RNA sequence: UUUAGCGUUAGGCUUGCGUUCAAUGAUGCCAUUGCCAACAGCGUGCAAUAAGUGGGUUUUACCUAAACCGGUGCCACCAUA
Numbered sequence: 001u002u003u004a005g006c007g008u009u010a011g012g013c014u015u016g017c018g019u020u021c022a023a024u025g026a027u028g029c030c031a032u033u034g035c036c037a038a039c040a041g042c043g044u045g046c047a048a049u050a051a052g053u054g055g056g057u058u059u060u061a062c063c064u065a066a067a068c069c070g071g072u073g074c075c076a077c078c079a080u081a
Base pairs, nucleotide, nucleotide: 005042006041009038011036012035013034016032018030021028052077053076054075056074057073061072062071063070
This 81-nucleotide sequence from Budvicia aquatica belongs to the Rfam family "antisense RNA of dnaA mRNA".